[Rfam]
Nucleotides: 106
Stems, first nucleotide, its partner, number of pairs: 004103005
Number, partner (000 for none) and nucleotide at each position: 001000u002000c003000u004103g005102c006101g007100u008099c009000u010000a011000g012000g013000a014000u015000g016000a017000u018000a019000c020000a021000c022000u023000u024000a025000c026000c027000a028000c029000a030000a031000a032000a033000g034000c035000a036000u037000a038000g039000u040000u041000c042000a043000a044000c045000u046000g047000a048000c049000u050000a051000c052000c053000a054000u055000g056000a057000a058000g059000a060000u061000a062000a063000a064000a065000a066000u067000u068000c069000c070000a071000u072000c073000g074000a075000a076000u077000u078000u079000a080000g081000u082000c083000u084000u085000u086000c087000g088000c089000u090000c091000c092000u093000a094000u095000c096000u097000g098000a099008g100007a101006c102005g103004c104000g105000g106000c

Rfam assigns this 106-nucleotide sequence from Eremothecium gossypii to the family "Small nucleolar RNA snR60/Z15/Z230/Z193/J17". Taxonomically the source falls in Eremothecium gossypii (Eukaryota, Opisthokonta, Fungi, Saccharomycetales). It is annotated as a C/D-box small nucleolar RNA. The literature on the family includes a 1999 paper in Science by Lowe and Eddy, "A computational screen for methylation guide snoRNAs in yeast". The family is grouped with related families in Rfam's "SNORD77 clan". Gene Ontology terms of the family: nucleolus and RNA processing. Pairs were carried over by alignment from the consensus structure.